Shown here is a 133-nucleotide RNA sequence from Domibacillus epiphyticus, a member of the family "PyrR binding site". On this family, see Bonner et al., Nucleic Acids Res 2001: "Molecular recognition of pyr mRNA by the Bacillus subtilis attenuation regulatory protein PyrR". Pairs were carried over by alignment from the consensus structure, which is taken from published work. The match comes from Rfam's covariance-model search (56 bits). Gene Ontology terms of the family: pyrimidine nucleobase transport and pyrimidine nucleobase biosynthetic process. Lineage of the source: Bacteria > Bacilli > Caryophanales > Bacillaceae > Domibacillus. About the family: This family represents the PyrR binding site and terminator structure. This RNA structure is found upstream of a variety of genes involved in pyrimidine biosynthesis and transport.
RNA sequence: AGAACCUUUAAAGAACAGUCCCGUGAGGCUGGGAAGGGAUCGGAUGCUAUACAGGAUAUGCGGGAUACGUGUAUCUGCUUGUUAUGGAACCAGUGUGCCUUCUCACCAAAUCGGGUGAGGAGGCUUUUUUCAU
Numbered sequence: 001a002g003a004a005c006c007u008u009u010a011a012a013g014a015a016c017a018g019u020c021c022c023g024u025g026a027g028g029c030u031g032g033g034a035a036g037g038g039a040u041c042g043g044a045u046g047c048u049a050u051a052c053a054g055g056a057u058a059u060g061c062g063g064g065a066u067a068c069g070u071g072u073a074u075c076u077g078c079u080u081g082u083u084a085u086g087g088a089a090c091c092a093g094u095g096u097g098c099c100u101u102c103u104c105a106c107c108a109a110a111u112c113g114g115g116u117g118a119g120g121a122g123g124c125u126u127u128u129u130u131c132a133u
Stems, first nucleotide, its partner, number of pairs: 005037005016031005052086002055083004060078005093128001095126001097124010
Dot-bracket structure: ....(((((......(((((......))))).)))))..............((.((((.(((((.........))))).)))).))......(.(.((((((((((........)))))))))).).).....